Shown here is a 134-nucleotide RNA sequence from Thermostaphylospora chromogena, a member of the family "c-di-AMP riboswitch aptamer (ydaO/yuaA leader)". It scores 73 bits against the family's covariance model.
[Rfam]
Nucleotides: 134
Stems, first nucleotide, its partner, number of pairs: 001126004008022003023121006033043002044106003052083004086100004
Number, partner (000 for none) and nucleotide at each position: 001126c002125g003124c004123c005000g006000a007000a008022u009021c010020c011000g012000c013000g014000u015000c016000c017000c018000g019000c020010g021009g022008a023121g024120c025119c026118g027117g028116g029000g030000a031000c032000c033043c034042g035000a036000a037000c038000c039000c040000c041000a042034u043033g044106g045105g046104g047000u048000g049000a050000a051000u052083c053082g054081g055080c056000a057000c058000c059000c060000g061000c062000a063000c064000g065000c066000g067000c068000c069000u070000c071000c072000u073000c074000g075000c076000g077000u078000a079000c080055g081054c082053c083052g084000u085000a086100g087099g088098g089097c090000a091000c092000u093000u094000c095000c096000a097089g098088c099087c100086c101000g102000a103000a104046c105045c106044c107000g108000u109000c110000a111000g112000c113000u114000a115000a116028c117027c118026c119025g120024g121023u122000a123004g124003g125002c126001g127000g128000c129000a130000u131000g132000g133000a134000a